Small nucleolar RNA SNORA72: a 131-nucleotide sequence from Phocoena sinus. It is annotated as an H/ACA-box small nucleolar RNA. About the family: U72 is a member of the H/ACA class of snoRNAs. The snoRNA gene is located in intron 4 of the ribosomal L30 protein gene in human, mouse and chicken. A reference for the family is Ganot et al. (1997), "The family of box ACA small nucleolar RNAs is defined by an evolutionarily conserved secondary structure and ubiquitous sequence elements essential for RNA accumulation", Genes Dev. Its family is annotated with RNA processing and nucleolus in the Gene Ontology.
[Rfam]
RNA sequence: UUGUGAAUAUUCUCGUUCUUCUGAUUUUGUAAUAACCAGGGCAGGCUAAACAUUCACUAUAUUAAGACCAUGCAUGUGCCCCCAGACCUAGUUCUUUUCCUAGUGUGGCUUUAUAAAUGCUGGUGAUAAAC
Numbered sequence: 001u002u003g004u005g006a007a008u009a010u011u012c013u014c015g016u017u018c019u020u021c022u023g024a025u026u027u028u029g030u031a032a033u034a035a036c037c038a039g040g041g042c043a044g045g046c047u048a049a050a051c052a053u054u055c056a057c058u059a060u061a062u063u064a065a066g067a068c069c070a071u072g073c074a075u076g077u078g079c080c081c082c083c084a085g086a087c088c089u090a091g092u093u094c095u096u097u098u099c100c101u102a103g104u105g106u107g108g109c110u111u112u113a114u115a116a117a118u119g120c121u122g123g124u125g126a127u128a129a130a131c
Stems, first nucleotide, its partner, number of pairs: 003057003016044002019041005025035002067124004072120002082108003086104001088103004